[Rfam]
RNA sequence: GCAGGUCUUCAGGGCGGGGUGGAAUUCCCCACCGGCGGUAGGCGGCGCAUGGAGGUUUUCUUGCACCGCGAGCCCGCGAGCGCCCCGGUUGCCAUCAGUGCAACCGGGGGUCAGCAGACCCGGUGCGGGGCGGCGCAGGCCACUCCCAGUCCGGGGCCGACGGUCAUAGUCCGGAUGAAAGAAGACGUGC
Numbered sequence: 001g002c003a004g005g006u007c008u009u010c011a012g013g014g015c016g017g018g019g020u021g022g023a024a025u026u027c028c029c030c031a032c033c034g035g036c037g038g039u040a041g042g043c044g045g046c047g048c049a050u051g052g053a054g055g056u057u058u059u060c061u062u063g064c065a066c067c068g069c070g071a072g073c074c075c076g077c078g079a080g081c082g083c084c085c086c087g088g089u090u091g092c093c094a095u096c097a098g099u100g101c102a103a104c105c106g107g108g109g110g111u112c113a114g115c116a117g118a119c120c121c122g123g124u125g126c127g128g129g130g131c132g133g134c135g136c137a138g139g140c141c142a143c144u145c146c147c148a149g150u151c152c153g154g155g156g157c158c159g160a161c162g163g164u165c166a167u168a169g170u171c172c173g174g175a176u177g178a179a180a181g182a183a184g185a186c187g188u189g190c
Stems, first nucleotide, its partner, number of pairs: 003188001005186006017029003031170002033159002035077004072157002080115002119155005161173003
RNA: FMN riboswitch aptamer (RFN element)